[Rfam]
RNA sequence: GAAGUGACCUGCCCGGUAAAGUCUGGUCAACAGCCGGUAGCGAGUCUUGCAUACUGGGAAGCGAUUUCUGGUGUGAAGCGUAGACAGCGAGUGCAAAAGCUGUGUGAUUGAGCCUCGAAAAAUGCUUCGUUGGAGCUUUCGUUUUUAAGAAGGCGAGAGCAGCACGAGGGUACCCUAUUGACCUAGUACCAUUGUCCGACCGGGGUCAUAGAGCA
Numbered sequence: 001g002a003a004g005u006g007a008c009c010u011g012c013c014c015g016g017u018a019a020a021g022u023c024u025g026g027u028c029a030a031c032a033g034c035c036g037g038u039a040g041c042g043a044g045u046c047u048u049g050c051a052u053a054c055u056g057g058g059a060a061g062c063g064a065u066u067u068c069u070g071g072u073g074u075g076a077a078g079c080g081u082a083g084a085c086a087g088c089g090a091g092u093g094c095a096a097a098a099g100c101u102g103u104g105u106g107a108u109u110g111a112g113c114c115u116c117g118a119a120a121a122a123u124g125c126u127u128c129g130u131u132g133g134a135g136c137u138u139u140c141g142u143u144u145u146u147a148a149g150a151a152g153g154c155g156a157g158a159g160c161a162g163c164a165c166g167a168g169g170g171u172a173c174c175c176u177a178u179u180g181a182c183c184u185a186g187u188a189c190c191a192u193u194g195u196c197c198g199a200c201c202g203g204g205g206u207c208a209u210a211g212a213g214c215a
Stems, first nucleotide, its partner, number of pairs: 013037004021031002025184002040088002044085004048080002050075011110207001112206006129200006135160003140155004165194003169190005
This 215-nucleotide sequence from Desulfosporosinus fructosivorans belongs to the Rfam family "Group II catalytic intron D1-D4-6".
The pairing is the family consensus, mapped onto this sequence.
On this family, see Lehmann and Schmidt, Crit Rev Biochem Mol Biol 2003: "Group II introns: structure and catalytic versatility of large natural ribozymes".